[Rfam]
RNA: Iron response element I
RNA sequence: UGGUUUCCUGCUUCAACAGUGCUUGGACGAACCUG
Number, nucleotide and partner (000 for none) at each position: 001u035002g034003g033004u000005u031006u000007c000008c029009u000010g028011c000012u027013u026014c025015a024016a023017c021018a000019g000020u000021g017022c000023u016024u015025g014026g013027a012028c010029g008030a000031a005032c000033c003034u002035g001